This 142-nucleotide sequence from Trabulsiella odontotermitis belongs to the Rfam family "sraL Hfq binding RNA". Pairs were carried over by alignment from the consensus structure, which was predicted with RNAalifold. Lineage of the source: Bacteria > Gammaproteobacteria > Enterobacterales > Enterobacteriaceae > Trabulsiella. It scores 127 bits against the family's covariance model. From the family's description: The SraL RNA ('sra' for small RNA), discovered in E. coli, and later in Salmonella Tiphimurium. The family's RNA type in Rfam is small RNA.
RNA sequence: GUCAGCACAACCCGGAACCUCCAACCCCUGAUGAGACAAUGAGGGGUGCUGAUGUCGGGGGAAACCCUCCCGUACCAGCGGGAUAGAGCGAAAGACAAAGACCGGAAAACGACUAAAGCGCCCUUUGUGGCGCUUUAGUUUU
Numbered sequence: 001g002u003c004a005g006c007a008c009a010a011c012c013c014g015g016a017a018c019c020u021c022c023a024a025c026c027c028c029u030g031a032u033g034a035g036a037c038a039a040u041g042a043g044g045g046g047u048g049c050u051g052a053u054g055u056c057g058g059g060g061g062a063a064a065c066c067c068u069c070c071c072g073u074a075c076c077a078g079c080g081g082g083a084u085a086g087a088g089c090g091a092a093a094g095a096c097a098a099a100g101a102c103c104g105g106a107a108a109a110c111g112a113c114u115a116a117a118g119c120g121c122c123c124u125u126u127g128u129g130g131c132g133c134u135u136u137a138g139u140u141u142u
Stems, first nucleotide, its partner, number of pairs: 002052007014022002032042001034040001054096003058067003068083006111140012